The record is a 53-nucleotide RNA sequence from Zavarzinia aquatilis, which matches "serC leader" in Rfam. Gene Ontology term of the family: regulation of gene expression. This family is a putative regulatory RNA structure that is found upstream of the serC-serA operon in some alpha-proteobacteria. A reference for the family is Corbino et al. (2005), "Evidence for a second class of S-adenosylmethionine riboswitches and other regulatory RNA motifs in alpha-proteobacteria", Genome Biol. The source organism's lineage runs through Bacteria, Pseudomonadota, Alphaproteobacteria, Rhodospirillales and Zavarzinia.
RNA sequence: CGACGGGUCACGUCCCCCCACCGGGACGCUGCUUAUCUGGAAGGAUAAGUCAA
Numbered sequence: 001c002g003a004c005g006g007g008u009c010a011c012g013u014c015c016c017c018c019c020a021c022c023g024g025g026a027c028g029c030u031g032c033u034u035a036u037c038u039g040g041a042a043g044g045a046u047a048a049g050u051c052a053a
Stems, first nucleotide, its partner, number of pairs: 011028006033048006